Description:
Shown here is a 178-nucleotide RNA from Jaculus jaculus, a member of the family "Small nucleolar RNA SNORA81".
[Rfam]
RNA sequence: ACCUUCUUGUAUAAGCACUGUGCUAAAAUUGCAGAGACUAGGAUCCUAUCUUGGUUUUUGUAAUAAUGCUAGCAGAGUUCACACAGGAAAAAGAGUAAUCACGCUAGAUCCCAGAGACUGGGGUGGACCUCUUUCUUAAUGUCCAAGGUCUGUUGUCUUAAGAUUUUGUGUAAUAUUG
Numbered sequence: 001a002c003c004u005u006c007u008u009g010u011a012u013a014a015g016c017a018c019u020g021u022g023c024u025a026a027a028a029u030u031g032c033a034g035a036g037a038c039u040a041g042g043a044u045c046c047u048a049u050c051u052u053g054g055u056u057u058u059u060g061u062a063a064u065a066a067u068g069c070u071a072g073c074a075g076a077g078u079u080c081a082c083a084c085a086g087g088a089a090a091a092a093g094a095g096u097a098a099u100c101a102c103g104c105u106a107g108a109u110c111c112c113a114g115a116g117a118c119u120g121g122g123g124u125g126g127a128c129c130u131c132u133u134u135c136u137u138a139a140u141g142u143c144c145a146a147g148g149u150c151u152g153u154u155g156u157c158u159u160a161a162g163a164u165u166u167u168g169u170g171u172a173a174u175a176u177u178g
Base pairs, nucleotide, nucleotide: 018077019076021074022073023072024071025070028067029066030065031064034058035057037055038054039053040052041051042050043049044048101171102170103169104168106166107165108164120149124145125144126143127142
Rfam links the family to the GO terms nucleolus and RNA processing.
NCBI's taxonomy places the organism under Eukaryota, Opisthokonta, Eutheria, Euarchontoglires, Jaculus.
Rfam 15.1 lists 1,161 matches to the family in 643 species.